[Rfam]
RNA sequence: UGGCGCUCCUAAGUACUGGUGCCGUAGGAUGGGCUGAAUAACGCGGGUCCUGCGACAGCAGUGCUUAUAAACGCCG
Numbered sequence: 001u002g003g004c005g006c007u008c009c010u011a012a013g014u015a016c017u018g019g020u021g022c023c024g025u026a027g028g029a030u031g032g033g034c035u036g037a038a039u040a041a042c043g044c045g046g047g048u049c050c051u052g053c054g055a056c057a058g059c060a061g062u063g064c065u066u067a068u069a070a071a072c073g074c075c076g
Base pairs, nucleotide, nucleotide: 001076002075003074004073005072007070010067011066012065013064014063015062016061017060018059024053025052026051027050028049029048030047

Record summary:
This 76-nucleotide RNA from Notodromas monacha belongs to the Rfam family "mir-252 microRNA precursor family". The family is grouped with related families in Rfam's "mir-252 microRNA precursor family". The base pairs follow the family's consensus structure, which was predicted with RNAalifold. For this family Rfam cites "Direct sequencing and expression analysis of a large number of miRNAs in Aedes aegypti and a multi-species survey of novel mosquito miRNAs" (Li et al., BMC Genomics, 2009).